RNA sequence: GGGUCAAUGAUGAAACUUUUGUAUGGUCUCUAAAGAGAUGAUGACUUAAAUGUCAUACUCAGAAGGAUUAUGCUGAGACCC
Number, nucleotide and partner (000 for none) at each position: 001g081002g080003g079004u078005c075006a074007a000008u072009g071010a000011u000012g000013a000014a000015a000016c000017u000018u000019u000020u000021g000022u000023a000024u000025g000026g000027u000028c000029u000030c000031u000032a000033a000034a000035g000036a000037g000038a000039u000040g000041a000042u000043g000044a000045c000046u000047u000048a000049a000050a000051u000052g000053u000054c000055a000056u000057a000058c000059u000060c000061a000062g000063a000064a000065g000066g000067a000068u000069u000070a000071u009072g008073c000074u006075g005076a000077g000078a004079c003080c002081c001
RNA: Small nucleolar RNA SNORD115
Organism: Carlito syrichta